[Rfam]
Archaeal large subunit ribosomal RNA: a 586-nucleotide part of an RNA from Methanobrevibacter ruminantium. The source organism's lineage runs through Archaea, Methanobacteriati, Methanobacteriota, Methanobacteria and Methanobrevibacter ruminantium.

Nucleotides: 586
Stems, first nucleotide, its partner, number of pairs: 001582001003580006010574003014569002022403004027399002029395005035196004042188007051154005057148010068137001078136005085119003097110005158176006199212001200210003213235006238342002244297006250276002253271006277286002302328003306324005330339001332337001353381005359376001361375004412453003416450001417447007427437002464539001465537004469531001470528005477502002481496005505517004545563004549558003
Number, partner (000 for none) and nucleotide at each position: 001582c002000u003580u004579c005578c006577a007576u008575u009000g010574g011573g012572a013000a014569g015568u016000g017000a018000a019000g020000a021000c022403c023402c024401c025400g026000u027399a028398g029395a030394g031393u032392u033391u034000u035196a036195c037194u038193g039000c040000a041000g042188u043187c044186u045185g046184c047183u048182g049000u050000u051154g052153a053152g054151g055150c056000u057148u058147g059146g060145u061144u062143g063142u064141u065140g066139g067000u068137a069000u070000g071000c072000a073000g074000u075000g076000u077000a078136g079135g080134u081133g082132g083000g084000a085119g086118a087117a088000u089000u090000c091000g092000a093000u094000g095000c096000g097110u098109g099108u100107u101106c102000g103000c104000c105000a106101g107100g108099a109098u110097a111000c112000g113000u114000u115000g116000a117087u118086u119085c120000g121000u122000c123000c124000u125000u126000g127000a128000g129000a130000c131000a132082c133081c134080a135079c136078c137068u138000u139066c140065u141064g142063g143062u144061a145060a146059c147058u148057g149000u150055g151054u152053c153052u154051c155000u156000a157000a158176c159175a160174u161173g162172a163171u164000u165000u166000u167000u168000g169000g170000u171163a172162u173161u174160g175159u176158g177000g178000a179000c180000a181000u182048c183047g184046g185045u186044a187043g188042a189000u190000g191000g192000g193038c194037a195036g196035u197000u198000c199212g200210g201209c202208u203000g204000g205000g206000g207000c208202g209201g210200c211000a212199c213235g214234g215233g216232c217231u218230u219000g220000a221000a222000a223000g224000u225000g226000u227000a228000u229000c230218a231217a232216g233215c234214c235213c236000g237000c238342c239341c240000u241000a242000a243000g244297g245296u246295c247294a248293a249292c250276u251275c252000a253271g254270g255269u256268g257267g258266g259000a260000c261000a262000g263000a264000g265000a266258u267257c268256c269255a270254c271253c272000g273000u274000a275251g276250a277286g278285u279000g280000u281000a282000a283000g284000g285278g286277c287000a288000a289000a290000u291000a292249g293248u294247u295246g296245g297244c298000c299000u300000g301000a302328c303327u304326g305000u306324a307323u308322u309321u310320u311000g312000a313000u314000c315000a316000g317000u318000a319000a320310g321309a322308a323307a324306u325000u326304c327303a328302g329000a330339g331000g332337c333000g334000a335000a336000a337332g338000c339330c340000g341239g342238g343000c344000c345000u346000a347000g348000c349000g350000a351000a352000c353381c354380u355379c356378a357377a358000a359376c360000u361375c362374c363373u364372c365000g366000u367000u368000g369000a370000u371000g372364g373363g374362g375361g376359g377357u378356u379355g380354a381353g382000a383000u384000g385000a386000c387000a388000g389000a390000a391033a392032a393031a394030c395029u396000a397000c398028c399027u400025c401024g402023g403022g404000g405000a406000u407000a408000a409000c410000u411000g412453g413452g414451u415000g416450g417447u418446c419445g420444c421443a422442g423441g424000c425000a426000a427437g428436a429000g430000c431000c432000c433000a434000u435000a436428u437427c438000g439000a440000c441423c442422c443421u444420g445419c446418g447417g448000c449000u450416u451414g452413c453412u454000a455000c456000u457000u458000c459000g460000a461000u462000g463000u464539c465537g466536g467535u468534u469531c470528u471527u472526u473525c474524c475000a476000u477502c478501c479000u480000g481496g482495g483494u484493g485492u486000g487000c488000a489000g490000c491000a492485g493484c494483a495482c496481c497000c498000a499000a500000g501478g502477g503000u504000g505517g506516g507515g508514u509000u510000g511000u512000u513000c514508g515507c516506c517505c518000a519000u520000u521000a522000a523000a524474g525473g526472g527471g528470a529000a530000c531469g532000u533000g534468a535467g536466c537465u538000g539464g540000g541000u542000u543000u544000a545563g546562a547561c548560c549558g550557u551556c552000g553000u554000g555000a556551g557550a558549c559000a560548g561547g562546u563545u564000g565000g566000u567000u568015a569014c570000u571000a572012u573011c574010u575008a576007a577006u578005g579004g580003a581000u582001g583000u584000g585000u586000u